Annotation
Rfam assigns this 138-nucleotide RNA from Paraburkholderia xenovorans to the family "radC RNA". Rfam 15.1 lists 500 matches to the family in 142 species. It is one of the family's seed sequences.

[Rfam]
RNA sequence: AUUCUUCCUCCUGCAUUGCCGACGUGUCGGCAGCAGCCAGCAGCCGGGGUGUCCAGGCUGCCGUGGGUUCUACCCGCGCCACCCACCAGUUCGCCUCGGCAUCUCACCGGCGAACGCUGCCCACCGGGGCAUCGAUGC
Numbered sequence: 001a002u003u004c005u006u007c008c009u010c011c012u013g014c015a016u017u018g019c020c021g022a023c024g025u026g027u028c029g030g031c032a033g034c035a036g037c038c039a040g041c042a043g044c045c046g047g048g049g050u051g052u053c054c055a056g057g058c059u060g061c062c063g064u065g066g067g068u069u070c071u072a073c074c075c076g077c078g079c080c081a082c083c084c085a086c087c088a089g090u091u092c093g094c095c096u097c098g099g100c101a102u103c104u105c106a107c108c109g110g111c112g113a114a115c116g117c118u119g120c121c122c123a124c125c126g127g128g129g130c131a132u133c134g135a136u137g138c
Stems, first nucleotide, its partner, number of pairs: 011036003018031005040061006047084004062078006110138003118131005